RNA sequence: UUUUGAGUGGUGAUGAACAAGUGUGUUUUGGACUAGAGUUUUUUGUACUGCUACUUUGUGGUAGUCAUUGAAGGCCAAAUCUUUGGCUGUCUGAACUCAAAU
Dot-bracket structure: .(((((((..............................((((...((((((......))))))......)))).....................))))))).
Numbered sequence: 001u002u003u004u005g006a007g008u009g010g011u012g013a014u015g016a017a018c019a020a021g022u023g024u025g026u027u028u029u030g031g032a033c034u035a036g037a038g039u040u041u042u043u044u045g046u047a048c049u050g051c052u053a054c055u056u057u058g059u060g061g062u063a064g065u066c067a068u069u070g071a072a073g074g075c076c077a078a079a080u081c082u083u084u085g086g087c088u089g090u091c092u093g094a095a096c097u098c099a100a101a102u
Stems, first nucleotide, its partner, number of pairs: 002101007039073004046063006
Small nucleolar RNA Z157/R69/R10: a 102-nucleotide RNA from Digitaria exilis.
The organism belongs to Digitaria, within Eukaryota.
It scores 76 bits against the family's covariance model.
Clan: SNORD52 clan.
Gene Ontology terms of the family: RNA processing and nucleolus.
The family's consensus secondary structure was predicted with PFOLD.
The family's RNA type in Rfam is C/D-box small nucleolar RNA.